[Rfam]
A member of the RNA family "Small nucleolar RNA R12" from Triticum aestivum, 76 nucleotides long. Taxonomically the source falls in Triticum (Eukaryota, Viridiplantae, Euphyllophyta, Petrosaviidae). The match comes from Rfam's covariance-model search (64 bits). snoR12 is a C/D box small nucleolar RNA, which acts as a methylation guide for 25S ribosomal RNA in plants. snoR12 has been alternatively named snoZ44 in Arabidopsis and snoZ131 in rice. The family's RNA type in Rfam is C/D-box small nucleolar RNA. Rfam links the family to the GO terms RNA processing and nucleolus. On this family, see Chen et al., Nucleic Acids Res 2003: "The high diversity of snoRNAs in plants: identification and comparative study of 120 snoRNA genes from Oryza sativa".

RNA sequence: UUUCGGGUGAUGAAGAAAAUCGUUCGGAUUCCCAUUGAUAUUUCAUGAUUAGUAUAACUAGCUACUUCUGAUGGAU
Numbered sequence: 001u002u003u004c005g006g007g008u009g010a011u012g013a014a015g016a017a018a019a020u021c022g023u024u025c026g027g028a029u030u031c032c033c034a035u036u037g038a039u040a041u042u043u044c045a046u047g048a049u050u051a052g053u054a055u056a057a058c059u060a061g062c063u064a065c066u067u068c069u070g071a072u073g074g075a076u
Base pairs, nucleotide, nucleotide: 002075003074004073005072